[Rfam]
Rfam assigns this 175-nucleotide sequence from Salimicrobium jeotgali to the family "glmS glucosamine-6-phosphate activated ribozyme aptamer". Rfam describes the family as follows. This entry contains a glucosamine-6-phosphate activated ribozyme that is found in the mRNA for GlmS. GlmS is an enzyme that uses fructose-6-phosphate and glutamine to generate glucosamine-6-phosphate. The ribozyme catalyses self cleavage of the glmS mRNA that is thought to regulate GlmS activity. Rfam classes the family as a riboswitch. The match comes from Rfam's covariance-model search (102 bits).
Nucleotides: 175
Stems, first nucleotide, its partner, number of pairs: 020051008029042001060093005069082004094114006119165007133150002136147004
Number, partner (000 for none) and nucleotide at each position: 001000a002000a003000u004000u005000a006000a007000u008000g009000u010000a011000a012000a013000g014000c015000g016000c017000c018000a019000g020051g021050a022049c023048u024047g025046c026045a027044g028000a029042u030000c031000a032000g033000g034000a035000c036000g037000u038000u039000u040000u041000u042029a043000u044027c045026u046025g047024c048023a049022g050021u051020u052000g053000a054000c055000g056000a057000g058000g059000u060093g061092g062091a063090g064089g065000u066000u067000c068000a069082u070081c071080g072079a073000g074000a075000u076000c077000a078000u079072u080071c081070g082069g083000c084000g085000g086000a087000u088000a089064c090063c091062u092061c093060c094114c095113g096112g097111u098110u099109g100000c101000c102000g103000a104000c105000a106000u107000u108000u109099c110098a111097a112096c113095c114094g115000a116000c117000u118000g119165u120164u121163u122162c123161u124160g125159u126000g127000c128000u129000a130000a131000a132000c133150c134149g135000u136147a137146g138145a139144g140000g141000c142000g143000a144139c145138u146137c147136u148000u149134c150133g151000u152000c153000c154000a155000a156000c157000g158000c159125g160124c161123a162122g163121g164120g165119a166000c167000a168000a169000a170000a171000u172000g173000u174000u175000c